[Rfam]
RNA: Bacterial RNase P class A
RNA sequence: UCAGGGGGCCGGGCGGCCGCUGGUUCCGGGUAGAUCCCGGGGCUGGAGGAAAGUCCGGGCUCCACGGGAAUACGGUGCCGGUCAACGGCCGGCGGGGGCGACCCCAGGGAAAGUGCCACAGAAAUCAAACCGCCGGGCCGGCUUGCCGCCCCGGUAAGGGUGAAACGGUGUGGUAAGAGCGCACCGCGCCCCUGGCAACAGGGGCGGCACGGUAAACCCCACCGGGAGCAAGGCCGAAUAGGGGCGGCCGGCGGCGAUUCCCUGGAAUCGUGACGCAGGGGCAUUCUCGCCCCGUCGCCCGGGUUGGCCGCGAGAGGCACGCCGCGAGGCGUGUCCCAGAGGAAUGGUCGCCUCGAUUCUCUCCUUCGGGGGCGGAUCGGACAGAACCCGGCUUACAGGCCCCCUGACGCU
Number, nucleotide and partner (000 for none) at each position: 001u407002c406003a405004g404005g403006g402007g401008g400009c399010c398011g396012g352013g351014c350015g349016g348017c347018c346019g000020c046021u045022g044023g043024u042025u041026c040027c039028g038029g000030g000031u000032a000033g000034a000035u000036c000037c000038c028039g027040g026041g025042g024043c023044u022045g021046g020047a000048g000049g000050a000051a394052a393053g392054u000055c391056c390057g389058g388059g387060c228061u227062c226063c225064a000065c000066g000067g000068g287069a000070a285071u000072a000073c224074g223075g222076u221077g220078c092079c091080g090081g089082u088083c000084a000085a000086c000087g000088g082089c081090c080091g079092g078093c107094g105095g104096g103097g102098g000099c000100g000101a000102c097103c096104c095105c094106a000107g093108g219109g218110a000111a000112a000113g217114u216115g213116c212117c211118a000119c000120a000121g000122a000123a000124a000125u000126c000127a000128a000129a000130c159131c158132g155133c154134c153135g152136g151137g150138c000139c148140g147141g000142c000143u000144u000145g000146c000147c140148g139149c000150c137151c136152c135153g134154g133155u132156a000157a000158g131159g130160g000161u000162g000163a000164a000165a000166c000167g185168g184169u183170g182171u181172g180173g000174u000175a000176a000177g000178a000179g000180c172181g171182c170183a169184c168185c167186g208187c206188g205189c204190c203191c202192c201193u200194g199195g000196c000197a000198a000199c194200a193201g192202g191203g190204g189205c188206g187207g000208c186209a000210c000211g117212g116213u115214a000215a000216a114217c113218c109219c108220c077221a076222c075223c074224g073225g063226g062227a061228g060229c000230a000231a000232g309233g308234c307235c306236g000237a000238a000239u000240a000241g000242g300243g299244g298245c297246g296247g295248c000249c000250g000251g000252c000253g000254g000255c000256g000257a000258u000259u000260c000261c000262c000263u000264g000265g000266a000267a000268u000269c000270g000271u000272g000273a000274c000275g000276c000277a000278g293279g292280g291281g290282c289283a000284u000285u070286c000287u068288c000289g282290c281291c280292c279293c278294g000295u247296c246297g245298c244299c243300c242301g000302g000303g000304u000305u000306g235307g234308c233309c232310g000311c000312g000313a000314g000315a000316g335317g334318c333319a332320c331321g330322c329323c328324g000325c000326g000327a000328g323329g322330c321331g320332u319333g318334u317335c316336c000337c000338a000339g000340a000341g000342g000343a000344a000345u000346g018347g017348u016349c015350g014351c013352c012353u000354c000355g000356a000357u000358u000359c000360u000361c000362u000363c000364c000365u000366u000367c000368g000369g000370g000371g000372g000373c000374g000375g000376a000377u000378c000379g000380g000381a000382c000383a000384g000385a000386a000387c059388c058389c057390g056391g055392c053393u052394u051395a000396c011397a000398g010399g009400c008401c007402c006403c005404c004405u003406g002407a001408c000409g000410c000411u000